[Rfam]
RNA sequence: GGUUGGACCCAGUGCACUGGUGCUUACAACUAAUUGGUCUCAACCAGUUACAGAUUUCUUUGUUCCUUCUCCACACCCAGCCUUCACUCAACCAGCCUUAA
Numbered sequence: 001g002g003u004u005g006g007a008c009c010c011a012g013u014g015c016a017c018u019g020g021u022g023c024u025u026a027c028a029a030c031u032a033a034u035u036g037g038u039c040u041c042a043a044c045c046a047g048u049u050a051c052a053g054a055u056u057u058c059u060u061u062g063u064u065c066c067u068u069c070u071c072c073a074c075a076c077c078c079a080g081c082c083u084u085c086a087c088u089c090a091a092c093c094a095g096c097c098u099u100a101a
Stems, first nucleotide, its partner, number of pairs: 001097006011088001014085001017080004022076001028064003032060002